[Rfam]
RNA sequence: GUCUGACACGGACCAACGGUGGCCAGUCUGGCUCCAACAUUUGGUCGCGGCGCAAUGAC
Numbered sequence: 001g002u003c004u005g006a007c008a009c010g011g012a013c014c015a016a017c018g019g020u021g022g023c024c025a026g027u028c029u030g031g032c033u034c035c036a037a038c039a040u041u042u043g044g045u046c047g048c049g050g051c052g053c054a055a056u057g058a059c
Base pairs, nucleotide, nucleotide: 007049009047010046011045013043015042016041018035019034021033022032023031024030025029
Selenocysteine insertion sequence 3: a 59-nucleotide sequence from Methylocella silvestris. NCBI's taxonomy places the organism under Bacteria, Pseudomonadati, Alphaproteobacteria, Methylocella, Methylocella silvestris. Rfam 15.1 lists 640 matches to the family in 593 species.